[Rfam]
This 75-nucleotide RNA from Anisodus acutangulus belongs to the Rfam family "Plastid-ycf2 5UTR RNA". It is annotated as a cis-regulatory element. Taxonomically the source falls in Anisodus (Eukaryota, Streptophyta, Euphyllophyta, asterids).
RNA sequence: GUGCCUCCGGUAAAAAUUGAACCUACGAAUUCACCAAUUAUGAGUUGAGUGCUUUAACCAUUCAAUUAUGGAUGC
Numbered sequence: 001g002u003g004c005c006u007c008c009g010g011u012a013a014a015a016a017u018u019g020a021a022c023c024u025a026c027g028a029a030u031u032c033a034c035c036a037a038u039u040a041u042g043a044g045u046u047g048a049g050u051g052c053u054u055u056a057a058c059c060a061u062u063c064a065a066u067u068a069u070g071g072a073u074g075c
Stems, first nucleotide, its partner, number of pairs: 003075002006072003010026003040069003044066008